[Rfam]
RNA sequence: CAUGCACCGGUGGGGUCCCUUGGCCUGGCCUGCACCCUCUUGCAACCCAGGACCCCUCGGGGGAUGUCGGAGAGCCGGUUUCAGCCUGAUCCUGCAGGCCAGGCUGAGGGACCCCACUGGUGCACA
Numbered sequence: 001c002a003u004g005c006a007c008c009g010g011u012g013g014g015g016u017c018c019c020u021u022g023g024c025c026u027g028g029c030c031u032g033c034a035c036c037c038u039c040u041u042g043c044a045a046c047c048c049a050g051g052a053c054c055c056c057u058c059g060g061g062g063g064a065u066g067u068c069g070g071a072g073a074g075c076c077g078g079u080u081u082c083a084g085c086c087u088g089a090u091c092c093u094g095c096a097g098g099c100c101a102g103g104c105u106g107a108g109g110g111a112c113c114c115c116a117c118u119g120g121u122g123c124a125c126a
Stems, first nucleotide, its partner, number of pairs: 003124002006121001008119003012115014027100008

Rfam assigns this 126-nucleotide RNA from Cnephaeus nilssonii to the family "mir-9193 microRNA precursor family". NCBI's taxonomy places the organism under Eukaryota, Eumetazoa, Euteleostomi, Amniota, Cnephaeus.